Overview
mir-9014 microRNA precursor family: an 88-nucleotide sequence from Equus caballus.
[Rfam]
RNA sequence: GGAGCAAUAGGGAGGGAUACCACUCCAGCCUUGGGAAAGGAAACCUGCCAUGGGAGUCUUGGAGAUUGGUGACUAUCCUAAUGACUUA
Numbered sequence: 001g002g003a004g005c006a007a008u009a010g011g012g013a014g015g016g017a018u019a020c021c022a023c024u025c026c027a028g029c030c031u032u033g034g035g036a037a038a039g040g041a042a043a044c045c046u047g048c049c050a051u052g053g054g055a056g057u058c059u060u061g062g063a064g065a066u067u068g069g070u071g072a073c074u075a076u077c078c079u080a081a082u083g084a085c086u087u088a
Stems, first nucleotide, its partner, number of pairs: 002087003007082002010079004015074002018071005024065002029062002038060004044054004
Notes:
Rfam 15.1 lists 581 matches to the family in 2 species.